[Rfam]
Rfam assigns this 84-nucleotide RNA sequence from Eleutherodactylus coqui to the family "mir-143 microRNA precursor family". Gene Ontology terms of the family: RISC complex and miRNA-mediated post-transcriptional gene silencing. The organism belongs to Eleutherodactylus, within Eukaryota. On this family, see Chen et al., Genes Dev 2005: "The developmental miRNA profiles of zebrafish as determined by small RNA cloning".
RNA sequence: UGUCUUCCAGCCCAAGGUGCAGUGCUGCAUCUCUGGUCAGUUGUGAGUCUGAGAUGAAGCACUGUAGCUCGGGAAGGCGGAAAU
Numbered sequence: 001u002g003u004c005u006u007c008c009a010g011c012c013c014a015a016g017g018u019g020c021a022g023u024g025c026u027g028c029a030u031c032u033c034u035g036g037u038c039a040g041u042u043g044u045g046a047g048u049c050u051g052a053g054a055u056g057a058a059g060c061a062c063u064g065u066a067g068c069u070c071g072g073g074a075a076g077g078c079g080g081a082a083a084u
Stems, first nucleotide, its partner, number of pairs: 011073003016068001018066009028056006035049002037046002